Small nucleolar RNA SNORD101: a 77-nucleotide sequence from Merops nubicus. NCBI's taxonomy places the organism under Eukaryota, Gnathostomata, Tetrapoda, Neognathae, Merops. By type it is a C/D-box small nucleolar RNA. A reference for the family is Vitali et al. (2003), "Identification of 13 novel human modification guide RNAs", Nucleic Acids Res. Gene Ontology terms of the family: nucleolus and RNA processing.
RNA sequence: GUUUGGGUGAUGACUGAGCGAUUUGUCGGAUACCCCUUCACCCCUCUGAUGGGUGACAACAGCAAAGUCUGACAAAC
Numbered sequence: 001g002u003u004u005g006g007g008u009g010a011u012g013a014c015u016g017a018g019c020g021a022u023u024u025g026u027c028g029g030a031u032a033c034c035c036c037u038u039c040a041c042c043c044c045u046c047u048g049a050u051g052g053g054u055g056a057c058a059a060c061a062g063c064a065a066a067g068u069c070u071g072a073c074a075a076a077c
Base pairs, nucleotide, nucleotide: 001077002076003075004074005073